Description:
The record is an 83-nucleotide RNA sequence from Filobacillus milosensis, which matches "ZMP/ZTP riboswitch aptamer (pfl RNA motif)" in Rfam. It scores 54 bits against the family's covariance model. NCBI's taxonomy places the organism under Bacteria, Bacillati, Bacilli, Bacillaceae, Filobacillus. Rfam links the family to the GO terms one-carbon metabolic process and regulation of purine nucleotide biosynthetic process. The base pairs follow the family's consensus structure, which is taken from published work.
[Rfam]
RNA sequence: UCAGCGUGCAGUGACUGACGACACAAUGGAAUAAACCAUAUGGGAGCUGCAUGUCAAUAAAGCCGGUCGUCUGGGCAGAGGGC
Numbered sequence: 001u002c003a004g005c006g007u008g009c010a011g012u013g014a015c016u017g018a019c020g021a022c023a024c025a026a027u028g029g030a031a032u033a034a035a036c037c038a039u040a041u042g043g044g045a046g047c048u049g050c051a052u053g054u055c056a057a058u059a060a061a062g063c064c065g066g067u068c069g070u071c072u073g074g075g076c077a078g079a080g081g082g083c
Stems, first nucleotide, its partner, number of pairs: 004054009015043002017071005026039004062076003